[Rfam]
RNA sequence: UAACCUCUGGCGAAAUACGUGCAUGUUG
Numbered sequence: 001u002a003a004c005c006u007c008u009g010g011c012g013a014a015a016u017a018c019g020u021g022c023a024u025g026u027u028g
Base pairs, nucleotide, nucleotide: 001028002027003026004025008023010020011019012018

Rfam assigns this 28-nucleotide sequence to the family "L19-Flavobacteria ribosomal protein leader". By type it is a cis-regulatory leader. A reference for the family is Eckert and Weinberg (2020), "Discovery of 20 novel ribosomal leader candidates in bacteria and archaea", BMC Microbiol.